[Rfam]
RNA sequence: GAUUGUUGAGGUGAGAAAAGGCUCCUCAUGCGCUAGUAUUAAUGUAGUAAACAGAGAUGCAGGAUAAUGUCGACCUGCCGAUAAUC
Numbered sequence: 001g002a003u004u005g006u007u008g009a010g011g012u013g014a015g016a017a018a019a020g021g022c023u024c025c026u027c028a029u030g031c032g033c034u035a036g037u038a039u040u041a042a043u044g045u046a047g048u049a050a051a052c053a054g055a056g057a058u059g060c061a062g063g064a065u066a067a068u069g070u071c072g073a074c075c076u077g078c079c080g081a082u083a084a085u086c
Stems, first nucleotide, its partner, number of pairs: 001086008011029005020071003031054001032048004059078005
RNA: skipping-rope RNA
Organism: Clostridium celatum